[Rfam]
RNA: L17-Actino-Proteobacteria ribosomal protein leader
RNA sequence: CCGGUGAGCGCUCGCUCAUCGGGUCCUGACACCGGUACCUGAUACGGCCGGUGCAG
Numbered sequence: 001c002c003g004g005u006g007a008g009c010g011c012u013c014g015c016u017c018a019u020c021g022g023g024u025c026c027u028g029a030c031a032c033c034g035g036u037a038c039c040u041g042a043u044a045c046g047g048c049c050g051g052u053g054c055a056g
Stems, first nucleotide, its partner, number of pairs: 001022009026056003030053007